[Rfam]
RNA sequence: AGCCUAACCCCCAUGGUUUGUGGGGCAUGGCAUAAAAUACGGUUCAGGCCAUCAAGCUCUCAGUCAGAGCACCUGAACCGUCAUAUUCCGAAAGGGGUAUGGGUAGCCGAGAGGCUAUC
Numbered sequence: 001a002g003c004c005u006a007a008c009c010c011c012c013a014u015g016g017u018u019u020g021u022g023g024g025g026c027a028u029g030g031c032a033u034a035a036a037a038u039a040c041g042g043u044u045c046a047g048g049c050c051a052u053c054a055a056g057c058u059c060u061c062a063g064u065c066a067g068a069g070c071a072c073c074u075g076a077a078c079c080g081u082c083a084u085a086u087u088c089c090g091a092a093a094g095g096g097g098u099a100u101g102g103g104u105a106g107c108c109g110a111g112a113g114g115c116u117a118u119c
Stems, first nucleotide, its partner, number of pairs: 002031003009025006040080009056070005082101008102119006